[Rfam]
RNA sequence: GCACUUGCCAAACACUCUGGCCCUUACUCAGAACCCAAUUACAUUGGGUUCAGACCCUCCGUGGUAUAGGCCUAUUUUUGGAGCAAGAAGAUUACGUUCUUCAGUCCGAUUACUCACCGCGGUAUUCUCUUUCCGCUCUGCGGGUUGGCGUGGAUACGGUGGUCCAUAUCUUUUGGACGACAU
Numbered sequence: 001g002c003a004c005u006u007g008c009c010a011a012a013c014a015c016u017c018u019g020g021c022c023c024u025u026a027c028u029c030a031g032a033a034c035c036c037a038a039u040u041a042c043a044u045u046g047g048g049u050u051c052a053g054a055c056c057c058u059c060c061g062u063g064g065u066a067u068a069g070g071c072c073u074a075u076u077u078u079u080g081g082a083g084c085a086a087g088a089a090g091a092u093u094a095c096g097u098u099c100u101u102c103a104g105u106c107c108g109a110u111u112a113c114u115c116a117c118c119g120c121g122g123u124a125u126u127c128u129c130u131u132u133c134c135g136c137u138c139u140g141c142g143g144g145u146u147g148g149c150g151u152g153g154a155u156a157c158g159g160u161g162g163u164c165c166a167u168a169u170c171u172u173u174u175g176g177a178c179g180a181c182a183u
Base pairs, nucleotide, nucleotide: 006085007084019072020071021070022069025066026065027064028063031051032050033049034048035047036046104178105177106176107175117162118161119160120159122157123156124155126154127153128152